[Rfam]
RNA sequence: UUCAUACUUUGGCAAAAUCAUUGAAAGAUGAUGACGCAAAACUACAGGGGCUAAGGUUUUUGACUAUGCCAGCCAGUUGCAAAU
Numbered sequence: 001u002u003c004a005u006a007c008u009u010u011g012g013c014a015a016a017a018u019c020a021u022u023g024a025a026a027g028a029u030g031a032u033g034a035c036g037c038a039a040a041a042c043u044a045c046a047g048g049g050g051c052u053a054a055g056g057u058u059u060u061u062g063a064c065u066a067u068g069c070c071a072g073c074c075a076g077u078u079g080c081a082a083a084u
Base pairs, nucleotide, nucleotide: 012037013036017032018031019030020029021028022027040078041077042076043075047074048073049070050069051068056064057063058062
Dot-bracket structure: ...........((...((((((....))))))...))..((((...(((((....(((...)))...)))..))))))......